A member of the RNA family "small nucleolar RNA snoR137" from Eragrostis curvula, 142 nucleotides long. NCBI's taxonomy places the organism under Eukaryota, Mesangiospermae, Poaceae, Eragrostideae, Eragrostis. Rfam links the family to the GO terms RNA processing and nucleolus. Rfam classes the family as an H/ACA-box small nucleolar RNA.

RNA sequence: GUUGCUUCACGACUGGAAGAGUGGCCUGAUUAUUUGUUUUUGGUCAUUCUGUAGAGGGAAGCAUAGAUUGAACAUGAAGCCAGAAUUAAACAGCAUGAUGCUUAUUUCACUGCAUCCGUGUUACCUGUCUCCUGGCACAUCG
Numbered sequence: 001g002u003u004g005c006u007u008c009a010c011g012a013c014u015g016g017a018a019g020a021g022u023g024g025c026c027u028g029a030u031u032a033u034u035u036g037u038u039u040u041u042g043g044u045c046a047u048u049c050u051g052u053a054g055a056g057g058g059a060a061g062c063a064u065a066g067a068u069u070g071a072a073c074a075u076g077a078a079g080c081c082a083g084a085a086u087u088a089a090a091c092a093g094c095a096u097g098a099u100g101c102u103u104a105u106u107u108c109a110c111u112g113c114a115u116c117c118g119u120g121u122u123a124c125c126u127g128u129c130u131c132c133u134g135g136c137a138c139a140u141c142g
Stems, first nucleotide, its partner, number of pairs: 003063006019049002022046005079136005085130001092122003096118001097116004
Dot-bracket structure: ..((((((..........((.(((((...............))))).))........))))))...............(((((.(......(((.(((((............)))).).))).......).)))))......